[Rfam]
RNA sequence: UUUUCAGUACAAGUAUAUUCCAUGCAAUAUUUGGAACAUACUUACACUAAAA
Numbered sequence: 001u002u003u004u005c006a007g008u009a010c011a012a013g014u015a016u017a018u019u020c021c022a023u024g025c026a027a028u029a030u031u032u033g034g035a036a037c038a039u040a041c042u043u044a045c046a047c048u049a050a051a052a
Stems, first nucleotide, its partner, number of pairs: 006048003011043002014040003018036004022031001
RNA: mir-1302 microRNA precursor family